[Rfam]
RNA sequence: CCAGAGCAUGCCAAACCCAGCUAGGCAUCUGGCCACCUCUGACAGAGAUGGUGGCUCCUCUCCCCCGCCCUGUCCUCCUGGCUGCCAGCUACUCACAGGAGGGACAGGGCUGGGGAGAGGAGCCGCAC
Numbered sequence: 001c002c003a004g005a006g007c008a009u010g011c012c013a014a015a016c017c018c019a020g021c022u023a024g025g026c027a028u029c030u031g032g033c034c035a036c037c038u039c040u041g042a043c044a045g046a047g048a049u050g051g052u053g054g055c056u057c058c059u060c061u062c063c064c065c066c067g068c069c070c071u072g073u074c075c076u077c078c079u080g081g082c083u084g085c086c087a088g089c090u091a092c093u094c095a096c097a098g099g100a101g102g103g104a105c106a107g108g109g110c111u112g113g114g115g116a117g118a119g120g121a122g123c124c125g126c127a128c
Stems, first nucleotide, its partner, number of pairs: 003040004010033003051128002054123004060117006067110001068108001070107004074102007